[Rfam]
RNA sequence: GCAGGACUAUGACCUAUGAAUUGACAGCCAGUGAGAAUGCAAGUCUGUCUGUCAGUUCUAUAGGCCACGGAGACGU
Numbered sequence: 001g002c003a004g005g006a007c008u009a010u011g012a013c014c015u016a017u018g019a020a021u022u023g024a025c026a027g028c029c030a031g032u033g034a035g036a037a038u039g040c041a042a043g044u045c046u047g048u049c050u051g052u053c054a055g056u057u058c059u060a061u062a063g064g065c066c067a068c069g070g071a072g073a074c075g076u
Stems, first nucleotide, its partner, number of pairs: 001076002007070002010067002013064004018058010029047003
The family of this 76-nucleotide sequence from Acipenser ruthenus is "mir-192/215 microRNA precursor family". The base pairs follow the family's consensus structure, which was predicted with PFOLD. Rfam links the family to the GO terms RISC complex and miRNA-mediated post-transcriptional gene silencing. On this family, see Lagos-Quintana et al., RNA 2003: "New microRNAs from mouse and human". This family represents the human microRNA (miRNA) precursors mir-192 and mir-215. Animal miRNAs are transcribed as ~70nt precursors and subsequently processed by the Dicer enzyme to give a ~22nt product. In this case the mature sequence comes from the 5' arm of the precursor. The extents of the hairpin precursors are not generally known and are estimated based on hairpin prediction.